[Rfam]
A member of the RNA family "Small nucleolar RNA SNORA79" from Electrophorus electricus, 143 nucleotides long.
Rfam links the family to the GO terms RNA processing and nucleolus.
It scores 71 bits against the family's covariance model.
The literature on the family includes a 2006 paper in RNA by Schattner et al., "A computational screen for mammalian pseudouridylation guide H/ACA RNAs".
Rfam describes the family as follows. ACA65 (SNORA79) is a member of the H/ACA class of snoRNAs that guide the sites of modification of uridines to pseudouridines. This snoRNA was identified by computational screening and its expression in mouse experimentally verified by Northern blot and primer extension analysis.
It is annotated as an H/ACA-box small nucleolar RNA.
RNA sequence: UGAUGACAGUUCCUCCUGCCGCUCUGAGAUCUGGCGUGUCAGGGUUUUAGGUCAUCACAAAUUAAACAGGGUCUGUCUAAUCCAGUGUGUGGGAUGGCUGGGCUGUUUUCUGUCCACUCUGGAUAAAUCCAGAUUCAACAUGU
Numbered sequence: 001u002g003a004u005g006a007c008a009g010u011u012c013c014u015c016c017u018g019c020c021g022c023u024c025u026g027a028g029a030u031c032u033g034g035c036g037u038g039u040c041a042g043g044g045u046u047u048u049a050g051g052u053c054a055u056c057a058c059a060a061a062u063u064a065a066a067c068a069g070g071g072u073c074u075g076u077c078u079a080a081u082c083c084a085g086u087g088u089g090u091g092g093g094a095u096g097g098c099u100g101g102g103c104u105g106u107u108u109u110c111u112g113u114c115c116a117c118u119c120u121g122g123a124u125a126a127a128u129c130c131a132g133a134u135u136c137a138a139c140a141u142g143u
Base pairs, nucleotide, nucleotide: 001057002056003055004054005053006052007051014044015043016042017041018040020036021035022034023033070135071134072133073132074131075130082122083121084120085119087117088116089115092111093110094109096107